[Rfam]
RNA sequence: UGCACUGUAUGGUACUGCACCCAGCAGCAUUCUCCUGAUGGAGUGUUCAGAAAAAAGUGCUACAGCAGUGCAAUGUUUGGCAUCACUGCUUUUUGUUCUGCUGUGUCUGUUAAAUCCAGUAUUUUUGCUGAAAGAGUC
Numbered sequence: 001u002g003c004a005c006u007g008u009a010u011g012g013u014a015c016u017g018c019a020c021c022c023a024g025c026a027g028c029a030u031u032c033u034c035c036u037g038a039u040g041g042a043g044u045g046u047u048c049a050g051a052a053a054a055a056a057g058u059g060c061u062a063c064a065g066c067a068g069u070g071c072a073a074u075g076u077u078u079g080g081c082a083u084c085a086c087u088g089c090u091u092u093u094u095g096u097u098c099u100g101c102u103g104u105g106u107c108u109g110u111u112a113a114a115u116c117c118a119g120u121a122u123u124u125u126u127g128c129u130g131a132a133a134g135a136g137u138c
Base pairs, nucleotide, nucleotide: 002060003059004058005057006056016051017046018045019044020043022041023039025037026036027035063127064126065125067123068122069121079107080106081105082104083103
The record is a 138-nucleotide RNA sequence from Smithornis capensis, which matches "Small nucleolar RNA SNORA8" in Rfam. Its family is annotated with RNA processing and nucleolus in the Gene Ontology. It scores 61 bits against the family's covariance model. Pairs were carried over by alignment from the consensus structure, which was predicted with RNAfold. The family is grouped with related families in Rfam's "SNORA8 clan". Lineage of the source: Eukaryota > Craniata > Telluraves > Eurylaimidae > Smithornis. Rfam describes the family as follows. ACA8 is a member of the H/ACA class of snoRNA that guide the sites of modification of uridines to pseudouridines. It is annotated as an H/ACA-box small nucleolar RNA.